[Rfam]
RNA sequence: UGAUGACCGUACUUCCUGUUGCCUUCAGGUCUAGCAUUAUGACUUGAGGUGAUCAUAAAUUAAAACUUGAUUUUCCUCACUCAGAGAAAUUAGAAUAAUAAGAUUAUCUGUCUAUUCUCCGAAAUUUGCAGAAUCAAACAAUU
Numbered sequence: 001u002g003a004u005g006a007c008c009g010u011a012c013u014u015c016c017u018g019u020u021g022c023c024u025u026c027a028g029g030u031c032u033a034g035c036a037u038u039a040u041g042a043c044u045u046g047a048g049g050u051g052a053u054c055a056u057a058a059a060u061u062a063a064a065a066c067u068u069g070a071u072u073u074u075c076c077u078c079a080c081u082c083a084g085a086g087a088a089a090u091u092a093g094a095a096u097a098a099u100a101a102g103a104u105u106a107u108c109u110g111u112c113u114a115u116u117c118u119c120c121g122a123a124a125u126u127u128g129c130a131g132a133a134u135c136a137a138a139c140a141a142u143u
Base pairs, nucleotide, nucleotide: 001055002054003053004052006050007049008048014042015041017039018038020036021035022034069135070134071133072132073131074130081122082121084119085118086117087116088115089113093109095107096106097105